Source information:
This 474-nucleotide part of an RNA from Ramalina farinacea belongs to the Rfam family "Eukaryotic small subunit ribosomal RNA". The family is grouped with related families in Rfam's "SSU clan". The family's consensus secondary structure is taken from published work. Gene Ontology terms of the family: structural constituent of ribosome and ribosome.

Nucleotides: 474
Stems, first nucleotide, its partner, number of pairs: 007470004
Number, partner (000 for none) and nucleotide at each position: 001000u002000u003000a004000u005000a006000a007470u008469u009468u010467g011000a012000c013000c014000u015000u016000a017000g018000u019000c020000u021000g022000u023000g024000c025000a026000c027000c028000g029000c030000a031000c032000g033000g034000c035000g036000a037000g038000g039000c040000u041000c042000c043000u044000g045000c046000u047000g048000u049000g050000c051000g052000u053000g054000g055000a056000u057000c058000g059000a060000u061000u062000c063000c064000c065000c066000c067000g068000g069000c070000c071000u072000c073000u074000g075000g076000c077000c078000g079000c080000g081000a082000g083000a084000a085000u086000g087000g088000a089000u090000a091000c092000c093000c094000g095000c096000a097000g098000c099000u100000g101000c102000a103000u104000c105000c106000c107000u108000g109000a110000g111000g112000g113000u114000g115000c116000g117000g118000u119000u120000c121000a122000c123000a124000g125000a126000u127000c128000a129000a130000g131000u132000u133000g134000g135000a136000g137000c138000c139000g140000g141000c142000g143000g144000a145000g146000g147000g148000c149000c150000u151000a152000c153000g154000g155000g156000c157000c158000a159000u160000c161000g162000c163000u164000u165000a166000u167000g168000a169000u170000a171000u172000g173000a174000u175000c176000g177000g178000c179000c180000c181000c182000u183000g184000g185000a186000g187000c188000u189000g190000a191000a192000u193000c194000u195000c196000c197000g198000g199000g200000g201000a202000c203000g204000a205000a206000g207000u208000g209000c210000g211000u212000g213000g214000a215000g216000c217000c218000u219000g220000c221000g222000g223000c224000u225000u226000a227000a228000u229000u230000u231000g232000a233000c234000u235000c236000a237000a238000c239000a240000c241000g242000g243000g244000g245000a246000a247000a248000c249000u250000c251000a252000c253000c254000a255000g256000g257000u258000u259000a260000a261000c262000u263000c264000a265000g266000c267000u268000u269000a270000c271000g272000u273000c274000u275000g276000g277000g278000c279000c280000u281000g282000g283000a284000u285000a286000c287000c288000g289000u290000a291000g292000c293000c294000c295000u296000u297000c298000g299000g300000g301000g302000c303000u304000g305000c306000c307000a308000g309000u310000g311000c312000c313000a314000u315000c316000u317000u318000c319000c320000a321000u322000g323000g324000u325000g326000c327000a328000a329000c330000g331000c332000u333000a334000g335000c336000u337000g338000g339000c340000a341000c342000a343000g344000g345000g346000a347000a348000c349000a350000c351000c352000c353000u354000c355000c356000c357000c358000g359000a360000g361000g362000g363000u364000c365000g366000a367000u368000c369000c370000u371000g372000u373000g374000g375000u376000g377000a378000g379000u380000c381000u382000c383000u384000c385000g386000a387000c388000c389000a390000c391000c392000g393000a394000a395000a396000c397000g398000c399000c400000u401000g402000c403000c404000a405000a406000g407000c408000a409000g410000c411000g412000g413000g414000c415000c416000u417000u418000u419000u420000c421000u422000c423000u424000g425000a426000u427000g428000g429000a430000a431000a432000g433000g434000c435000u436000a437000u438000c439000g440000u441000u442000c443000a444000u445000g446000c447000u448000a449000a450000a451000c452000c453000a454000g455000u456000g457000g458000a459000g460000a461000c462000a463000u464000c465000c466000g467010c468009g469008g470007g471000u472000a473000u474000u